[Rfam]
RNA sequence: ACACGUGUGUGUGUGUGUGUAAUACACACGUGUGUGUGUGUAUACACACGUGUGUGUGUGUAUAUACACACGUGUGUGUGUAUAUACACACACGUGUGUGUGUAUAUACACACGUGUGUGUGUAUAUACACACACGUGUUGUGUAUAUACACACACGUGUGUGUGUGUGUAUAUACACACG
Number, nucleotide and partner (000 for none) at each position: 001a000002c000003a000004c000005g000006u000007g000008u181009g000010u000011g000012u177013g176014u175015g000016u000017g000018u163019g162020u161021a160022a000023u000024a000025c000026a000027c098028a097029c096030g095031u000032g093033u000034g091035u000036g089037u088038g087039u086040g085041u084042a083043u082044a081045c080046a079047c078048a000049c000050g000051u000052g000053u000054g000055u000056g069057u068058g067059u066060g065061u000062a000063u000064a000065u060066a059067c058068a057069c056070a000071c000072g000073u000074g000075u000076g000077u000078g047079u046080g045081u044082a043083u042084a041085u040086a039087c038088a037089c036090a000091c034092a000093c032094g000095u030096g029097u028098g027099u000100g113101u112102g111103u110104a000105u000106a000107u000108a000109c000110a103111c102112a101113c100114g000115u000116g133117u132118g131119u130120g129121u128122g000123u000124a000125u000126a000127u000128a121129c120130a119131c118132a117133c116134a000135c157136g156137u155138g154139u000140u153141g152142u151143g150144u000145a000146u000147a000148u000149a000150c143151a142152c141153a140154c138155a137156c136157g135158u000159g000160u021161g020162u019163g018164u000165g000166u000167g000168u000169g000170u000171a000172u000173a000174u000175a014176c013177a012178c000179a000180c000181g008
This 181-nucleotide RNA sequence from Leptobrachium leishanense belongs to the Rfam family "Small nucleolar RNA ZL1".
About the family: Host gene TRRAP. Predicted target U2@U47. Only GU-rich region is homologous to other known snoRNAs. Conserved in vertebrates.
Its family is annotated with RNA processing and nucleolus in the Gene Ontology.
A search with the family's covariance model found it, with a score of 66 bits.
It is annotated as a C/D-box small nucleolar RNA.